[Rfam]
RNA: Soft rot Enterobacteriaceae Rev 39 5'UTR
RNA sequence: AAAUGUUGUGCGCUGCAUCAACUCUAUGGUAACUCUUUAGGUAUUCCUUCGAUUACGAUGUAAGAAAUAACCAAAAUGACAGCCCUUCUACGAGUGAUUAGCCUGGUCGUGAUUAGCGUGGUGGUGAUUAUUAUCCCACCGUGCGGGGCUGCACUUGGAGAAAGAAAGGCUUAAAAAUCAAGCCUGAAUCAACGAGAACCCCCGCACCGAAAGGUCCGGGGGUUUUUUAUUAGCUAAUGAAUGGUGAUUAGGGGUAAGUGAUGUGUUCUAGCAUAAAAUCCUGUUUGCCUCAUUCUGU
Numbered sequence: 001a002a003a004u005g006u007u008g009u010g011c012g013c014u015g016c017a018u019c020a021a022c023u024c025u026a027u028g029g030u031a032a033c034u035c036u037u038u039a040g041g042u043a044u045u046c047c048u049u050c051g052a053u054u055a056c057g058a059u060g061u062a063a064g065a066a067a068u069a070a071c072c073a074a075a076a077u078g079a080c081a082g083c084c085c086u087u088c089u090a091c092g093a094g095u096g097a098u099u100a101g102c103c104u105g106g107u108c109g110u111g112a113u114u115a116g117c118g119u120g121g122u123g124g125u126g127a128u129u130a131u132u133a134u135c136c137c138a139c140c141g142u143g144c145g146g147g148g149c150u151g152c153a154c155u156u157g158g159a160g161a162a163a164g165a166a167a168g169g170c171u172u173a174a175a176a177a178u179c180a181a182g183c184c185u186g187a188a189u190c191a192a193c194g195a196g197a198a199c200c201c202c203c204g205c206a207c208c209g210a211a212a213g214g215u216c217c218g219g220g221g222g223u224u225u226u227u228u229a230u231u232a233g234c235u236a237a238u239g240a241a242u243g244g245u246g247a248u249u250a251g252g253g254g255u256a257a258g259u260g261a262u263g264u265g266u267u268c269u270a271g272c273a274u275a276a277a278a279u280c281c282u283g284u285u286u287g288c289c290u291c292a293u294u295c296u297g298u
Stems, first nucleotide, its partner, number of pairs: 005033005010024001037074002040071001042069001044066003048062001049058002084252003089247001093242001097238005103233004108118003120140005126135003142159001144157004163189001168185002171182002194227011206215003253285004258280001261274003